[Rfam]
RNA sequence: UUGCCUUAAACUAAUGAGUAAGGAAAACAAAGCGUCCGGUGAGAACCGGUCGCGGCGCUAAUCGUAAAACACAAAAUUGGCGCAAUAAUUUAUGGAGGGGUUAUAGGCUGGCCGAUGUGUUGACGCUGCUUACUUUUGCAGAACUCACCUCGUGCGGGCCUCCCU
Number, nucleotide and partner (000 for none) at each position: 001u000002u000003g000004c023005c022006u021007u020008a019009a000010a000011c000012u000013a000014a000015u000016g000017a000018g000019u008020a007021a006022g005023g004024a000025a000026a000027a000028c000029a000030a000031a000032g053033c052034g051035u000036c049037c048038g047039g046040u000041g000042a000043g000044a000045a000046c039047c038048g037049g036050u000051c034052g033053c032054g000055g083056c082057g081058c080059u079060a078061a077062u076063c000064g000065u000066a000067a000068a000069a000070c000071a000072c000073a000074a000075a000076a062077u061078u060079g059080g058081c057082g056083c055084a000085a000086u000087a000088a000089u000090u000091u000092a000093u000094g000095g000096a000097g165098g164099g163100g162101u000102u000103a000104u000105a000106g160107g159108c158109u157110g000111g155112c154113c000114g151115a150116u000117g148118u147119g146120u000121u000122g000123a000124c000125g000126c141127u140128g139129c138130u000131u000132a000133c000134u000135u000136u000137u000138g129139c128140a127141g126142a000143a000144c000145u000146c119147a118148c117149c000150u115151c114152g000153u000154g112155c111156g000157g109158g108159c107160c106161u000162c100163c099164c098165u097